[Rfam]
RNA sequence: CAGUAUACUCAUCCAUAAAGUAGGAAACACUACACUGUGUAGUAGAGUUUAGUAGUGCUUUCUACUUUAUGGGUGACAACACUGU
Numbered sequence: 001c002a003g004u005a006u007a008c009u010c011a012u013c014c015a016u017a018a019a020g021u022a023g024g025a026a027a028c029a030c031u032a033c034a035c036u037g038u039g040u041a042g043u044a045g046a047g048u049u050u051a052g053u054a055g056u057g058c059u060u061u062c063u064a065c066u067u068u069a070u071g072g073g074u075g076a077c078a079a080c081a082c083u084g085u
Base pairs, nucleotide, nucleotide: 014071015070016069017068018067019066020065021064022063023062026059028057029056030055031054032053033052
Rfam assigns this 85-nucleotide RNA sequence from Perca flavescens to the family "mir-142 microRNA precursor family". Rfam links the family to the GO terms miRNA-mediated post-transcriptional gene silencing and RISC complex. A search with the family's covariance model found it, with a score of 68 bits.